The family of this 79-nucleotide RNA from Lepisosteus oculatus is "Small nucleolar RNA SNORD71". On this family, see Huttenhofer et al., EMBO J 2001: "RNomics: an experimental approach that identifies 201 candidates for novel, small, non-messenger RNAs in mouse".

[Rfam]
RNA sequence: UUGCUGUUGAGUGAUGAAAGCUUUGAGUGAUCCAUCGACUGAGUAUAGAUGUUGACUCAUUAAGCACUGACAACAGCAU
Numbered sequence: 001u002u003g004c005u006g007u008u009g010a011g012u013g014a015u016g017a018a019a020g021c022u023u024u025g026a027g028u029g030a031u032c033c034a035u036c037g038a039c040u041g042a043g044u045a046u047a048g049a050u051g052u053u054g055a056c057u058c059a060u061u062a063a064g065c066a067c068u069g070a071c072a073a074c075a076g077c078a079u
Base pairs, nucleotide, nucleotide: 002078003077004076005075006074007073008072009068013032014031015030017028035055036054037053038052039051
Notes:
The family's consensus secondary structure was predicted with RNAalifold. Rfam describes the family as follows. snoRNA HBII-239 belongs to the family of C/D snoRNAs.It is the human orthologue of the mouse MBII-239 described and is predicted to guide 2'O-ribose methylation of 5.8S rRNA on residue U14. Taxonomically the source falls in Lepisosteus (Eukaryota, Chordata, Vertebrata, Euteleostomi).